[Rfam]
RNA sequence: CUUCCCCUCGGCCAGUCCUGUGCCCACUGCCUUCACACUGUCCUUGGAGGGAGGCAGAAGCAGGAUGACGGGGGCAG
Numbered sequence: 001c002u003u004c005c006c007c008u009c010g011g012c013c014a015g016u017c018c019u020g021u022g023c024c025c026a027c028u029g030c031c032u033u034c035a036c037a038c039u040g041u042c043c044u045u046g047g048a049g050g051g052a053g054g055c056a057g058a059a060g061c062a063g064g065a066u067g068a069c070g071g072g073g074g075c076a077g
Base pairs, nucleotide, nucleotide: 005074006073007072008071009070010069015066016065017064018063019062020061021060027054028053030051031050032049033048034047
RNA: mir-1910 microRNA precursor family